[Rfam]
RNA sequence: GCUCCCUAUCGGAACUCUGACUGUGACCUGUGUAGUAUCUUUAAUAUCACAUCACAGGCAGAGUUCUAGUUAGGUGG
Numbered sequence: 001g002c003u004c005c006c007u008a009u010c011g012g013a014a015c016u017c018u019g020a021c022u023g024u025g026a027c028c029u030g031u032g033u034a035g036u037a038u039c040u041u042u043a044a045u046a047u048c049a050c051a052u053c054a055c056a057g058g059c060a061g062a063g064u065u066c067u068a069g070u071u072a073g074g075u076g077g
Base pairs, nucleotide, nucleotide: 004074005073009069011067012066013065014064015063016062017061021057022056023055024054025053026052030050031049032048
Dot-bracket structure: ...((...(.(((((((...((((((...(((...............))).))))))...))))))).)...))...
The family of this 77-nucleotide RNA sequence from Fopius arisanus is "mir-11 microRNA precursor family". The literature on the family includes a 2010 paper in BMC Genomics by Skalsky et al., "Identification of microRNAs expressed in two mosquito vectors, Aedes albopictus and Culex quinquefasciatus". The base pairs follow the family's consensus structure, which was predicted with RNAalifold. Lineage of the source: Eukaryota > Opisthokonta > Bilateria > Altocrustacea > Fopius. The family has 20 seed sequences and 138 matches in Rfam 15.1.